[Rfam]
Rfam assigns this 334-nucleotide RNA from Soehngenia longivitae to the family "Bacterial RNase P class A". Rfam classes the family as a ribozyme.
RNA sequence: AGAGUAAGUUGUAUGGUCGCAUGCUGGGCAUGAGGAAAGUCCGUGCUCCAUAGAGCAAGAUGCUGGGUAAUACCCAGUGGGGGUGACCCUAAGGAAAGUGCAACAGAAAUAAACCGCCAUCUUAUGGCAAGGGUGGAAAGGCGAGGUAAGAGCUCACCAGCAUUUAGGUGACUAAAUGGCUAUGUAAACCCCAUCUGGAGCAAGACCAAGUAGGAACAUAAAAAGAUAGUUGCUCGCUAUCGUUCCAAAGGUAGGUCGCUUGAGCACAUUGGCGACAAUGUGCCUAGAUAGAUGAUCAUAUAAACAGAACACGGCUUACAGACUUACUCGUUAC
Numbered sequence: 001a002g003a004g005u006a007a008g009u010u011g012u013a014u015g016g017u018c019g020c021a022u023g024c025u026g027g028g029c030a031u032g033a034g035g036a037a038a039g040u041c042c043g044u045g046c047u048c049c050a051u052a053g054a055g056c057a058a059g060a061u062g063c064u065g066g067g068u069a070a071u072a073c074c075c076a077g078u079g080g081g082g083g084u085g086a087c088c089c090u091a092a093g094g095a096a097a098g099u100g101c102a103a104c105a106g107a108a109a110u111a112a113a114c115c116g117c118c119a120u121c122u123u124a125u126g127g128c129a130a131g132g133g134u135g136g137a138a139a140g141g142c143g144a145g146g147u148a149a150g151a152g153c154u155c156a157c158c159a160g161c162a163u164u165u166a167g168g169u170g171a172c173u174a175a176a177u178g179g180c181u182a183u184g185u186a187a188a189c190c191c192c193a194u195c196u197g198g199a200g201c202a203a204g205a206c207c208a209a210g211u212a213g214g215a216a217c218a219u220a221a222a223a224a225g226a227u228a229g230u231u232g233c234u235c236g237c238u239a240u241c242g243u244u245c246c247a248a249a250g251g252u253a254g255g256u257c258g259c260u261u262g263a264g265c266a267c268a269u270u271g272g273c274g275a276c277a278a279u280g281u282g283c284c285u286a287g288a289u290a291g292a293u294g295a296u297c298a299u300a301u302a303a304a305c306a307g308a309a310c311a312c313g314g315c316u317u318a319c320a321g322a323c324u325u326a327c328u329c330g331u332u333a334c
Stems, first nucleotide, its partner, number of pairs: 002329009011319001012300007020032005037317003041314005046200004053235004058196005063077005078092001079090004093191002098189002100185003114132002116128005140158002143155003160180001161178007204257004214245004226240005264283008
A search with the family's covariance model found it, with a score of 292 bits. NCBI's taxonomy places the organism under Bacteria, Tissierellia, Tissierellales, Tissierellaceae, Soehngenia. From the family's description: Ribonuclease P (RNase P) is a ubiquitous endoribonuclease, found in archaea, bacteria and eukarya as well as chloroplasts and mitochondria.